[Rfam]
The family of this 175-nucleotide sequence from Filobacillus milosensis is "glmS glucosamine-6-phosphate activated ribozyme aptamer". Lineage of the source: Bacteria > Bacillota > Bacilli > Caryophanales > Filobacillus. This entry contains a glucosamine-6-phosphate activated ribozyme that is found in the mRNA for GlmS. GlmS is an enzyme that uses fructose-6-phosphate and glutamine to generate glucosamine-6-phosphate. By type it is a riboswitch.
RNA sequence: UAAACUAAAAAAGCGCCAGGACUAUUUCUAGGACGGAAAAUAGAAAUAGUUGACGAGGAGAAGGUUCAUCGAGUCAUCGGCGGGUACCUUCCGGUUGAUCGUUAUCUCAACCGAGACGUUUUAGGUGAAAACAUAGAGGCGACUCUGUGCACAACCACUUAAAACAAGAUAACAC
Numbered sequence: 001u002a003a004a005c006u007a008a009a010a011a012a013g014c015g016c017c018a019g020g021a022c023u024a025u026u027u028c029u030a031g032g033a034c035g036g037a038a039a040a041u042a043g044a045a046a047u048a049g050u051u052g053a054c055g056a057g058g059a060g061a062a063g064g065u066u067c068a069u070c071g072a073g074u075c076a077u078c079g080g081c082g083g084g085u086a087c088c089u090u091c092c093g094g095u096u097g098a099u100c101g102u103u104a105u106c107u108c109a110a111c112c113g114a115g116a117c118g119u120u121u122u123a124g125g126u127g128a129a130a131a132c133a134u135a136g137a138g139g140c141g142a143c144u145c146u147g148u149g150c151a152c153a154a155c156c157a158c159u160u161a162a163a164a165c166a167a168g169a170u171a172a173c174a175c
Stems, first nucleotide, its partner, number of pairs: 020051008029042001060091005069080004092113006118165007132149007